Shown here is a 132-nucleotide RNA sequence from Rothia aerolata, a member of the family "Glycine riboswitch aptamer". Its family is annotated with glycine biosynthetic process in the Gene Ontology. Rfam's curators write: This family represents the bacterial glycine riboswitch. The match comes from Rfam's covariance-model search (58 bits). NCBI's taxonomy places the organism under Bacteria, Actinomycetota, Actinomycetes, Micrococcales, Rothia.
[Rfam]
Nucleotides: 132
Base pairs, nucleotide, nucleotide: 008125009124010123011122012121013120020074021073022072023071076112077111078110079108080107083106084105085104
Number, partner (000 for none) and nucleotide at each position: 001000u002000c003000a004000u005000c006000a007000c008125g009124c010123g011122c012121g013120g014000g015000a016000g017000a018000g019000a020074c021073c022072g023071g024000u025000c026000u027000u028000u029000u030000g031000u032000g033000a034000g035000g036000c037000u038000a039000a040000c041000c042000c043000a044000g045000g046000c047000a048000a049000g050000u051000c052000c053000g054000g055000g056000u057000a058000g059000g060000c061000c062000g063000c064000a065000g066000a067000a068000a069000a070000g071023c072022u073021g074020g075000c076112g077111c078110c079108g080107a081000a082000g083106g084105a085104g086000c087000a088000a089000g090000a091000u092000c093000u094000u095000c096000c097000c098000g099000g100000g101000a102000a103000a104085c105084u106083c107080u108079c109000a110078g111077g112076c113000a114000a115000a116000a117000g118000u119000a120013c121012c122011g123010c124009g125008u126000a127000g128000u129000g130000u131000a132000g